[Rfam]
RNA: mir-8/mir-141/mir-200 microRNA precursor family
Organism: Takifugu rubripes
RNA sequence: AUAGGCGUCUUACCAGACAUGGUUAGAUGUAAUUAUUGUUGUCUAAUACUGUCUGGUAAUGCCGUCCAU
Numbered sequence: 001a002u003a004g005g006c007g008u009c010u011u012a013c014c015a016g017a018c019a020u021g022g023u024u025a026g027a028u029g030u031a032a033u034u035a036u037u038g039u040u041g042u043c044u045a046a047u048a049c050u051g052u053c054u055g056g057u058a059a060u061g062c063c064g065u066c067c068a069u
Stems, first nucleotide, its partner, number of pairs: 002068001004066004009061001010059010022047006